The family of this 351-nucleotide sequence from Tropheryma whipplei is "Bacterial RNase P class A". Rfam's curators put it in the seed alignment. Taxonomically the source falls in Tropheryma whipplei (Bacteria, Bacillati, Actinomycetota, Tropherymataceae).

RNA sequence: GAGGGCUUGCGGGCGGUCGCGGUGUCUAUUGGUACCGAGGAACGUCCGGGCUCCGUAGAGCAAGGCGGUGGGUAACGCCCACCCGGGGUGACCCGAGAGCUGAGUGCCACAGAAAAUAACCGCCGUUACGGUAAGGGUGAAAAGGUGGUGUAAGAGACCACCAGGGAUUGGGGUGACCCAAUCUGCUGGGUAAACCUCGCCUGGAGCAAGAUCAAGCAGGGAACUUAGGCUGCUCGUUUAGUUCCCGGGUAGAUCGCUAGAGCCUGUUGGCAACAACAGGUCAAGAUGGAUGGCCGCCUCGUUGGUUUUUAAUCCAACGAACAGAACCCGGCGUAUAGCAAGCCCUCGUUC
Numbered sequence: 001g002a003g004g005g006c007u008u009g010c011g012g013g014c015g016g017u018c019g020c021g022g023u024g025u026c027u028a029u030u031g032g033u034a035c036c037g038a039g040g041a042a043c044g045u046c047c048g049g050g051c052u053c054c055g056u057a058g059a060g061c062a063a064g065g066c067g068g069u070g071g072g073u074a075a076c077g078c079c080c081a082c083c084c085g086g087g088g089u090g091a092c093c094c095g096a097g098a099g100c101u102g103a104g105u106g107c108c109a110c111a112g113a114a115a116a117u118a119a120c121c122g123c124c125g126u127u128a129c130g131g132u133a134a135g136g137g138u139g140a141a142a143a144g145g146u147g148g149u150g151u152a153a154g155a156g157a158c159c160a161c162c163a164g165g166g167a168u169u170g171g172g173g174u175g176a177c178c179c180a181a182u183c184u185g186c187u188g189g190g191u192a193a194a195c196c197u198c199g200c201c202u203g204g205a206g207c208a209a210g211a212u213c214a215a216g217c218a219g220g221g222a223a224c225u226u227a228g229g230c231u232g233c234u235c236g237u238u239u240a241g242u243u244c245c246c247g248g249g250u251a252g253a254u255c256g257c258u259a260g261a262g263c264c265u266g267u268u269g270g271c272a273a274c275a276a277c278a279g280g281u282c283a284a285g286a287u288g289g290a291u292g293g294c295c296g297c298c299u300c301g302u303u304g305g306u307u308u309u310u311a312a313u314c315c316a317a318c319g320a321a322c323a324g325a326a327c328c329c330g331g332c333g334u335a336u337a338g339c340a341a342g343c344c345c346u347c348g349u350u351c
Base pairs, nucleotide, nucleotide: 001347002346003345004344005343006342007341008340009339010338011336012298013297014296015295016294017293018292020037021036022035023034024033025032026031042334043333044332046331047330048329049328050327051206052205053204054203058235059234060233061232063202064201065200066199067198068082069081070080071079072078083097084095085094086093087092098197099196104195105194106191107190108189120136121135122132123131124130125129144162145161146160147159148158149157164186165184166183167182168181169180170179171178172177210255211254212253213252219246220245221244222243223242224241226240227239228238229237230236262281263280264279265278266277267276268275269274